[Rfam]
RNA sequence: AGCUUUGCGCAGUGGCAGCAGUGGCCAGUGAAGUUUAUCCGAGGCGUGAUUAUUGCUGAUUGAAAACUUCCCCAUUACCCGCCAAGAUGACUUGAAAUAUAGUUGGCGUUGGCAAUUUUUGACAGUUUCUGUGGAGA
Numbered sequence: 001a002g003c004u005u006u007g008c009g010c011a012g013u014g015g016c017a018g019c020a021g022u023g024g025c026c027a028g029u030g031a032a033g034u035u036u037a038u039c040c041g042a043g044g045c046g047u048g049a050u051u052a053u054u055g056c057u058g059a060u061u062g063a064a065a066a067c068u069u070c071c072c073c074a075u076u077a078c079c080c081g082c083c084a085a086g087a088u089g090a091c092u093u094g095a096a097a098u099a100u101a102g103u104u105g106g107c108g109u110u111g112g113c114a115a116u117u118u119u120u121g122a123c124a125g126u127u128u129c130u131g132u133g134g135a136g137a
Stems, first nucleotide, its partner, number of pairs: 020050001021047002024045003033039001081113003084109001086107001088105005126137004
Dot-bracket structure: ...................(((.(((......(.....)...)))))..)..............................((((.(.(((((........))))).).).)))............((((....))))